[Rfam]
RNA: Bacteroidales small SRP
RNA sequence: UUGCAGCCGGCAAGUCUUAUACGACCAGCUCCUAUUGAAACUCCCCAGGGCAGGAAUGCAGCAAGGAUAGAUGGUUGAGCGGUGCGAUGUAAGUAACUUGCCUUUUU
Numbered sequence: 001u002u003g004c005a006g007c008c009g010g011c012a013a014g015u016c017u018u019a020u021a022c023g024a025c026c027a028g029c030u031c032c033u034a035u036u037g038a039a040a041c042u043c044c045c046c047a048g049g050g051c052a053g054g055a056a057u058g059c060a061g062c063a064a065g066g067a068u069a070g071a072u073g074g075u076u077g078a079g080c081g082g083u084g085c086g087a088u089g090u091a092a093g094u095a096a097c098u099u100g101c102c103u104u105u106u107u
Stems, first nucleotide, its partner, number of pairs: 009102007017092005022086002024083002